[Rfam]
RNA sequence: UGGGAGGGUGAUACUUGGACAGGCCUGAGCGGUGUCCUCUCCACCACUACGCCUCCCUAUAGCAUUCCUGCUCUCUGUUGACUGGGGCGACGUGAGGGUAAUCGCCACGGACAGAUACGGGGCAGACACCC
Numbered sequence: 001u002g003g004g005a006g007g008g009u010g011a012u013a014c015u016u017g018g019a020c021a022g023g024c025c026u027g028a029g030c031g032g033u034g035u036c037c038u039c040u041c042c043a044c045c046a047c048u049a050c051g052c053c054u055c056c057c058u059a060u061a062g063c064a065u066u067c068c069u070g071c072u073c074u075c076u077g078u079u080g081a082c083u084g085g086g087g088c089g090a091c092g093u094g095a096g097g098g099u100a101a102u103c104g105c106c107a108c109g110g111a112c113a114g115a116u117a118c119g120g121g122g123c124a125g126a127c128a129c130c131c
Stems, first nucleotide, its partner, number of pairs: 002057006016043003022037002025034001068125007082110003087105004
RNA: Small Cajal body specific RNA 8
Organism: Megalops atlanticus